[Rfam]
RNA sequence: CGCUUCGAGGAGCGUUGCAACAGGAGCGCGGAGUUUAUGGGAUCAGGGCCCGCCCCGACCCAUAAACUCCGCCGCCUCCUGCCAGGCUCGGAGAAAGCGGGUUCAGGAUGAACAACUGCGCUCGGUAACU
Numbered sequence: 001c002g003c004u005u006c007g008a009g010g011a012g013c014g015u016u017g018c019a020a021c022a023g024g025a026g027c028g029c030g031g032a033g034u035u036u037a038u039g040g041g042a043u044c045a046g047g048g049c050c051c052g053c054c055c056c057g058a059c060c061c062a063u064a065a066a067c068u069c070c071g072c073c074g075c076c077u078c079c080u081g082c083c084a085g086g087c088u089c090g091g092a093g094a095a096a097g098c099g100g101g102u103u104c105a106g107g108a109u110g111a112a113c114a115a116c117u118g119c120g121c122u123c124g125g126u127a128a129c130u
Stems, first nucleotide, its partner, number of pairs: 003093006021081006
Description: This 130-nucleotide RNA from Thiohalobacter thiocyanaticus belongs to the Rfam family "SAH (S-adenosyl-L-homocysteine) riboswitch aptamer". Rfam 15.1 lists 1,354 matches to the family in 1,132 species. The organism belongs to Thiohalobacter, within Bacteria. It scores 53 bits against the family's covariance model.